[Rfam]
RNA sequence: GCGGACGUAGCUCAGCUGGUAGAGCACCACCUUGCCAAGGUGGAUGUCGCGCGUUCGAGUCGCGUCGUCCGCU
Numbered sequence: 001g002c003g004g005a006c007g008u009a010g011c012u013c014a015g016c017u018g019g020u021a022g023a024g025c026a027c028c029a030c031c032u033u034g035c036c037a038a039g040g041u042g043g044a045u046g047u048c049g050c051g052c053g054u055u056c057g058a059g060u061c062g063c064g065u066c067g068u069c070c071g072c073u
Base pairs, nucleotide, nucleotide: 001072002071003070004069005068006067007066010025011024012023013022027043028042029041030040031039049065050064051063052062053061
Rfam assigns this 73-nucleotide RNA sequence from Streptomyces sp. ISL-94 to the family "tRNA". The family's consensus secondary structure is taken from published work. By type it is a transfer RNA. Its family is annotated with triplet codon-amino acid adaptor activity in the Gene Ontology.